RNA sequence: GGGGGGAGAGCUGGAUCCUGGGCUGGGUCCCCGGUGCCCAUGGGUUCCUGGGCCUGCUCGGCUGGAAUCCCACUCCCAGGGCUGUGCAGCUCCCU
Numbered sequence: 001g002g003g004g005g006g007a008g009a010g011c012u013g014g015a016u017c018c019u020g021g022g023c024u025g026g027g028u029c030c031c032c033g034g035u036g037c038c039c040a041u042g043g044g045u046u047c048c049u050g051g052g053c054c055u056g057c058u059c060g061g062c063u064g065g066a067a068u069c070c071c072a073c074u075c076c077c078a079g080g081g082c083u084g085u086g087c088a089g090c091u092c093c094c095u
Base pairs, nucleotide, nucleotide: 001095002094003093004092005091006090010087011086012084013083014082017080018079020076021075022074024072025071026070027069028066029065030064031061032060033059034058036057037056042054044053045052046051
RNA: mir-8799 microRNA precursor family